[Rfam]
RNA sequence: GCACGCGAUGCGGGAGAGUCGACGCCGGGCGUCGACACCGAAGGAGCAAGCCUCCCCGCCAAUCUCUCAGGUACGUGUACCGCAUCGAACAG
Numbered sequence: 001g002c003a004c005g006c007g008a009u010g011c012g013g014g015a016g017a018g019u020c021g022a023c024g025c026c027g028g029g030c031g032u033c034g035a036c037a038c039c040g041a042a043g044g045a046g047c048a049a050g051c052c053u054c055c056c057c058g059c060c061a062a063u064c065u066c067u068c069a070g071g072u073a074c075g076u077g078u079a080c081c082g083c084a085u086c087g088a089a090c091a092g
Stems, first nucleotide, its partner, number of pairs: 006087008019035004037072003040068002044066003050059002
About this RNA:
This 92-nucleotide RNA sequence from Protaetiibacter larvae belongs to the Rfam family "Glycine riboswitch aptamer". The base pairs follow the family's consensus structure. The source organism's lineage runs through Bacteria, Actinomycetota, Micrococcales, Microbacteriaceae and Protaetiibacter. A search with the family's covariance model found it, with a score of 66 bits. Clan: Glycine riboswitch clan.